Shown here is a 428-nucleotide RNA sequence from Thauera terpenica, a member of the family "Bacterial RNase P class A".
RNA sequence: GAAGUUCGCCAGGCAGUCGCUGCGCACCUCGUCGUGCGUGGAGGAAAGUCCGGGCCCCGCAGAGCAGGAUGCCGGCUAACGGCCGGGCGCCGUGAGGCGACGGAAAGUGCAACAGAGAGCAAACCGCCGAUGGCCCGUGCGAACGGGAUCAGGUAAGGGUGAAAGGGUGUCGUGAACUGCGCAAGCAGGUCGCGAGUCGGUGCGAAAGCACCGGCGGGUAAGAGCCCACCGCAGGACUGGUAACAGGACUGGCACGGCAAACCCCAUCCGGGGCAAGGCCAAAUAGGGGAGCAUUGGCGUGGCUCGCGUCGCUCCCGGGUAGGCUGCUAGAGCUUCACGGUAACGUGUCGCCCAGAGGAAUGACUGCCCGAUGUCGCCGGCUUGCCGGCGGCGUUCGACAGAACCCGGCUUAUCGGCGAACUUCCCCA
Numbered sequence: 001g002a003a004g005u006u007c008g009c010c011a012g013g014c015a016g017u018c019g020c021u022g023c024g025c026a027c028c029u030c031g032u033c034g035u036g037c038g039u040g041g042a043g044g045a046a047a048g049u050c051c052g053g054g055c056c057c058c059g060c061a062g063a064g065c066a067g068g069a070u071g072c073c074g075g076c077u078a079a080c081g082g083c084c085g086g087g088c089g090c091c092g093u094g095a096g097g098c099g100a101c102g103g104a105a106a107g108u109g110c111a112a113c114a115g116a117g118a119g120c121a122a123a124c125c126g127c128c129g130a131u132g133g134c135c136c137g138u139g140c141g142a143a144c145g146g147g148a149u150c151a152g153g154u155a156a157g158g159g160u161g162a163a164a165g166g167g168u169g170u171c172g173u174g175a176a177c178u179g180c181g182c183a184a185g186c187a188g189g190u191c192g193c194g195a196g197u198c199g200g201u202g203c204g205a206a207a208g209c210a211c212c213g214g215c216g217g218g219u220a221a222g223a224g225c226c227c228a229c230c231g232c233a234g235g236a237c238u239g240g241u242a243a244c245a246g247g248a249c250u251g252g253c254a255c256g257g258c259a260a261a262c263c264c265c266a267u268c269c270g271g272g273g274c275a276a277g278g279c280c281a282a283a284u285a286g287g288g289g290a291g292c293a294u295u296g297g298c299g300u301g302g303c304u305c306g307c308g309u310c311g312c313u314c315c316c317g318g319g320u321a322g323g324c325u326g327c328u329a330g331a332g333c334u335u336c337a338c339g340g341u342a343a344c345g346u347g348u349c350g351c352c353c354a355g356a357g358g359a360a361u362g363a364c365u366g367c368c369c370g371a372u373g374u375c376g377c378c379g380g381c382u383u384g385c386c387g388g389c390g391g392c393g394u395u396c397g398a399c400a401g402a403a404c405c406c407g408g409c410u411u412a413u414c415g416g417c418g419a420a421c422u423u424c425c426c427c428a
Base pairs, nucleotide, nucleotide: 001424002423003422004421005420006419007418008417009416010415011413012368013367014366015365016364017363018362020041021040022039023038024037025036026035027034046411047410048409050408051407052406053405054404055273056272057271058270062305063304064303065302067269068268069267070266071265072086073085074084075083076082087101088099089098090097091096102264103263107262108261109258110257124158125157126154127153128152131151132150133149135147136146166230167229168228169227231253232251233250234249237246238245239244277325278324279323280322287316288315289314290313291312292311296310297309298308299307300306332351333350336347337346338345339344
Taxonomically the source falls in Thauera terpenica (Bacteria, Pseudomonadati, Betaproteobacteria, Zoogloeaceae). Rfam links the family to the GO terms ribonuclease P activity, tRNA processing and dimeric ribonuclease P complex. Rfam classes the family as a ribozyme. Ribonuclease P (RNase P) is a ubiquitous endoribonuclease, found in archaea, bacteria and eukarya as well as chloroplasts and mitochondria. Its best characterised activity is the generation of mature 5'-ends of tRNAs by cleaving the 5'-leader elements of precursor-tRNAs. Cellular RNase Ps are ribonucleoproteins. RNA from bacterial RNase Ps retains its catalytic activity in the absence of the protein subunit, i.e. it is a ribozyme.